[Rfam]
RNA sequence: UUGCUUGUAGACCAGGUGCUGUUACUAUCUGUUUCUGAGGUUUACACUACAGAUGCAAGAAAAAAAGUUCCUCAUGCUUUCUUUCUGCCUGCUUCUGUGGCAGCCAAGAUUGAAUAGGGUAAUACAGGU
Numbered sequence: 001u002u003g004c005u006u007g008u009a010g011a012c013c014a015g016g017u018g019c020u021g022u023u024a025c026u027a028u029c030u031g032u033u034u035c036u037g038a039g040g041u042u043u044a045c046a047c048u049a050c051a052g053a054u055g056c057a058a059g060a061a062a063a064a065a066a067g068u069u070c071c072u073c074a075u076g077c078u079u080u081c082u083u084u085c086u087g088c089c090u091g092c093u094u095c096u097g098u099g100g101c102a103g104c105c106a107a108g109a110u111u112g113a114a115u116a117g118g119g120u121a122a123u124a125c126a127g128g129u
Stems, first nucleotide, its partner, number of pairs: 001053001002051002006046008016034001018032002021029001069121001071119003077112001080109004085103005
A member of the RNA family "Small nucleolar RNA SNORA31" from Chrysochloris asiatica, 129 nucleotides long. A reference for the family is Huttenhofer et al. (2001), "RNomics: an experimental approach that identifies 201 candidates for novel, small, non-messenger RNAs in mouse", EMBO J. The family's consensus secondary structure was predicted with RNAalifold.